[Rfam]
RNA sequence: GGCCAAUGACUUGAAAUAAUUGUCCGUACCAUCUGAAGUCCAGCAUUUGCUGGUCUACUGAUGUACCUUUUAUUCUGAGGCCU
Numbered sequence: 001g002g003c004c005a006a007u008g009a010c011u012u013g014a015a016a017u018a019a020u021u022g023u024c025c026g027u028a029c030c031a032u033c034u035g036a037a038g039u040c041c042a043g044c045a046u047u048u049g050c051u052g053g054u055c056u057a058c059u060g061a062u063g064u065a066c067c068u069u070u071u072a073u074u075c076u077g078a079g080g081c082c083u
Base pairs, nucleotide, nucleotide: 001082002081003080004079
The record is an 83-nucleotide RNA sequence from Leersia perrieri, which matches "small nucleolar RNA snoR117" in Rfam. For this family Rfam cites "Mining small RNA sequencing data: a new approach to identify small nucleolar RNAs in Arabidopsis" (Chen and Wu, Nucleic Acids Res, 2009). Taxonomically the source falls in Leersia (Eukaryota, Streptophytina, commelinids, Oryzeae). The family's consensus secondary structure was predicted with RNAalifold. A search with the family's covariance model found it, with a score of 48 bits.